RNA sequence: GAGCAUCGGCACCUUGGCUCUAGACUGCUUACUGCUGCGUACGGACAGGACAGUAACAGUCUACAGUCAUGGCUACUGAAGCAUG
Dot-bracket structure: ...........((.((((....(((((.(((((..................))))))))))....)))).)).............